A member of the RNA family "Small nucleolar RNA snoR53Y" from Senna tora, 81 nucleotides long. The family is grouped with related families in Rfam's "snoR53 clan". Its family is annotated with RNA processing and nucleolus in the Gene Ontology. Pairs were carried over by alignment from the consensus structure, which was predicted with WAR.
RNA sequence: GUUCCCGAUGAUGCCUCUUUUGAACCAUGCUAAUGCUGAUAUCAGAUGAUUUAUCCUUCAGUUUAUUAUACUGAGGGGACC
Dot-bracket structure: (((((......................................................................))))).
About this RNA
The source organism's lineage runs through Eukaryota, Streptophytina, Fabales, Fabaceae and Senna. Rfam classes the family as a C/D-box small nucleolar RNA.